[Rfam]
RNA: Small Cajal body specific RNA 6
Organism: Polypterus senegalus
RNA sequence: GGUCUGUGAUGAUAGGUAAAAGGUAUGAUGCUAUAUACCCCUCUGCUUUUCAGAGCCUUGCUCUCCCAGGGUUCUCUCUUACAUUCCAGUCUAGCUCAAGAUGUGCUUGACUGGGUGUGAUGCUCCCUGACAUCUUAAAUGGGUAUCUAGCCUGUCCAAGUUUCUGAGAGCUUAGAGUCAUGGCAGCAAGAUGCACCCAACAAAAAUAAUGGUAAAGGAGAAUUUAAUAGGCUUGAAGAGAAAGGGGCAAAGCAUGAUCUGAAGUUUUCAAUCUGAGACC
Numbered sequence: 001g002g003u004c005u006g007u008g009a010u011g012a013u014a015g016g017u018a019a020a021a022g023g024u025a026u027g028a029u030g031c032u033a034u035a036u037a038c039c040c041c042u043c044u045g046c047u048u049u050u051c052a053g054a055g056c057c058u059u060g061c062u063c064u065c066c067c068a069g070g071g072u073u074c075u076c077u078c079u080u081a082c083a084u085u086c087c088a089g090u091c092u093a094g095c096u097c098a099a100g101a102u103g104u105g106c107u108u109g110a111c112u113g114g115g116u117g118u119g120a121u122g123c124u125c126c127c128u129g130a131c132a133u134c135u136u137a138a139a140u141g142g143g144u145a146u147c148u149a150g151c152c153u154g155u156c157c158a159a160g161u162u163u164c165u166g167a168g169a170g171c172u173u174a175g176a177g178u179c180a181u182g183g184c185a186g187c188a189a190g191a192u193g194c195a196c197c198c199a200a201c202a203a204a205a206a207u208a209a210u211g212g213u214a215a216a217g218g219a220g221a222a223u224u225u226a227a228u229a230g231g232c233u234u235g236a237a238g239a240g241a242a243a244g245g246g247g248c249a250a251a252g253c254a255u256g257a258u259c260u261g262a263a264g265u266u267u268u269c270a271a272u273c274u275g276a277g278a279c280c
Base pairs, nucleotide, nucleotide: 001280002279003278004277034261035260037258039256045232046231047230048229050227063220064219065218066217067129068128069127070126071125085115086114087113088112089111090110091109093108094107095105141197142196146193156183157182158181160179162177163176164175165174